[Rfam]
RNA: mir-1729 microRNA precursor family
RNA sequence: CCUGCAUCCCUUACUCACAUGAGUAGUCGUAUCUAUUUCAGUGGGACUACUCGGUGAGUAAGGAUAGCAGG
Numbered sequence: 001c002c003u004g005c006a007u008c009c010c011u012u013a014c015u016c017a018c019a020u021g022a023g024u025a026g027u028c029g030u031a032u033c034u035a036u037u038u039c040a041g042u043g044g045g046a047c048u049a050c051u052c053g054g055u056g057a058g059u060a061a062g063g064a065u066a067g068c069a070g071g
Stems, first nucleotide, its partner, number of pairs: 001071005006065004011061008020053009